[Rfam]
RNA sequence: GGUCAGCGUCGUGACUGGCGUUCAGAUGGUCACCAUCGGGGAACGACAACAUUCAGAGAUGGCCGCUCGCCUGGGCCGCAGGA
Dot-bracket structure: .......(((((..(([[[[.....((((...))))..))..)))))............(((((...]]]]..))))).....
ZMP/ZTP riboswitch aptamer (pfl RNA motif): an 83-nucleotide RNA from Leucobacter chromiisoli.
The organism belongs to Leucobacter, within Bacteria.